Record summary
Shown here is a 97-nucleotide sequence from Anolis carolinensis, a member of the family "mir-490 microRNA precursor family". Rfam links the family to the GO terms RISC complex and miRNA-mediated post-transcriptional gene silencing. The literature on the family includes a 2008 paper in Genome Res by Murchison et al., "Conservation of small RNA pathways in platypus". Rfam's curators put it in the seed alignment.

[Rfam]
RNA sequence: UGAUAUGUUCAUGCCUCAACACCAUGGAUCUCCAGGUGGGUCAAGAUUAUAGAGAAACACCAACCUGGAGGACUCCAUGCUGUUGAGCUGUUCACAA
Number, nucleotide and partner (000 for none) at each position: 001u000002g000003a000004u000005a000006u000007g000008u000009u000010c000011a000012u000013g000014c000015c000016u086017c085018a084019a083020c082021a081022c000023c079024a078025u077026g076027g075028a074029u071030c070031u069032c068033c067034a066035g065036g064037u063038g000039g061040g060041u059042c000043a000044a000045g000046a000047u000048u000049a000050u000051a000052g000053a000054g000055a000056a000057a000058c000059a041060c040061c039062a000063a037064c036065c035066u034067g033068g032069a031070g030071g029072a000073c000074u028075c027076c026077a025078u024079g023080c000081u021082g020083u019084u018085g017086a016087g000088c000089u000090g000091u000092u000093c000094a000095c000096a000097a000